A member of the RNA family "Iron response element II" from Chiloscyllium punctatum, 31 nucleotides long. Taxonomically the source falls in Chiloscyllium (Eukaryota, Craniata, Gnathostomata, Orectolobiformes). About the family: IRE, TFRC, SLC40A1, SDHB, SLC11A2, CDC42BPA, ACO2, ALAS2_H.SAPIENS, CDC14A, EPAS1, ALAS2, qoxD, Hao1, NDUFS1, transferrin, Aconitate. Gene Ontology term of the family: response to iron ion. It scores 32 bits against the family's covariance model. The family's consensus secondary structure is taken from published work. The family's RNA type in Rfam is cis-regulatory element.
[Rfam]
RNA sequence: AAUUUAUCAGGGACAGUGAUCACUAUAAAUU
Numbered sequence: 001a002a003u004u005u006a007u008c009a010g011g012g013a014c015a016g017u018g019a020u021c022a023c024u025a026u027a028a029a030u031u
Base pairs, nucleotide, nucleotide: 001031002030003029004028005027006026007025009024010023012021013020014018
On this family, see Koeller et al., Proc Natl Acad Sci U S A 1989: "A cytosolic protein binds to structural elements within the iron regulatory region of the transferrin receptor mRNA".